[Rfam]
Overview: The family of this 97-nucleotide RNA from Staphylococcus saprophyticus is "Staphylococcus sRNA 774". The family's RNA type in Rfam is small RNA. Northern blot transcript confirmed in exponentially growing and stationary cells in three cultivation media. Trans-encoded. NCBI's taxonomy places the organism under Bacteria, Bacillota, Bacilli, Caryophanales, Staphylococcus saprophyticus. On this family, see Mader et al., PLoS Genet 2016: "Staphylococcus aureus Transcriptome Architecture: From Laboratory to Infection-Mimicking Conditions". The sequence is in the family's curated seed alignment.

RNA sequence: AAUUAAUUUUAAAAAACGUUGACAUUAAGUAAAUGUUUAUGAUAUGCUGAUUGGGUAGGAGUCAUAAAUAUUAUUAUCGCGGGAUGGAGCAGUUCGG
Numbered sequence: 001a002a003u004u005a006a007u008u009u010u011a012a013a014a015a016a017c018g019u020u021g022a023c024a025u026u027a028a029g030u031a032a033a034u035g036u037u038u039a040u041g042a043u044a045u046g047c048u049g050a051u052u053g054g055g056u057a058g059g060a061g062u063c064a065u066a067a068a069u070a071u072u073a074u075u076a077u078c079g080c081g082g083g084a085u086g087g088a089g090c091a092g093u094u095c096g097g
Stems, first nucleotide, its partner, number of pairs: 004039003010021003060072003